[Rfam]
This 105-nucleotide RNA sequence from Leptobacterium flavescens belongs to the Rfam family "SAM riboswitch aptamer (S box leader)".

RNA sequence: GUGUUAUCAAGAAAGGUGAAGGGAAUAGACCCGUUGAAACCUUAGCAACCCUCCGUUCUGUACAGAGAAGGUGCUACAUUCUACCACAAUGUGGACAGAUGACGA
Numbered sequence: 001g002u003g004u005u006a007u008c009a010a011g012a013a014a015g016g017u018g019a020a021g022g023g024a025a026u027a028g029a030c031c032c033g034u035u036g037a038a039a040c041c042u043u044a045g046c047a048a049c050c051c052u053c054c055g056u057u058c059u060g061u062a063c064a065g066a067g068a069a070g071g072u073g074c075u076a077c078a079u080u081c082u083a084c085c086a087c088a089a090u091g092u093g094g095a096c097a098g099a100u101g102a103c104g105a
Base pairs, nucleotide, nucleotide: 002104003103004102005101006100007099008098013043014042015041016040017039021032022031023030026083027082028081029080044075045074046073047072049071050070051067052066053065079097084094085093086092087091

The match comes from Rfam's covariance-model search (75 bits).